[Rfam]
RNA sequence: UAAUUAUCUGAAACAAUGUUUUCAAUAAUUA
Numbered sequence: 001u002a003a004u005u006a007u008c009u010g011a012a013a014c015a016a017u018g019u020u021u022u023c024a025a026u027a028a029u030u031a
Stems, first nucleotide, its partner, number of pairs: 001031007009024005014018001
A member of the RNA family "Iron response element II" from Nothobranchius furzeri, 31 nucleotides long. On this family, see Wingert et al., Nature 2005: "Deficiency of glutaredoxin 5 reveals Fe-S clusters are required for vertebrate haem synthesis". NCBI's taxonomy places the organism under Eukaryota, Vertebrata, Actinopteri, Atherinomorphae, Nothobranchius. From the family's description: IRE, TFRC, SLC40A1, SDHB, SLC11A2, CDC42BPA, ACO2, ALAS2_H.SAPIENS, CDC14A, EPAS1, ALAS2, qoxD, Hao1, NDUFS1, transferrin, Aconitate. Pairs were carried over by alignment from the consensus structure, which is taken from published work.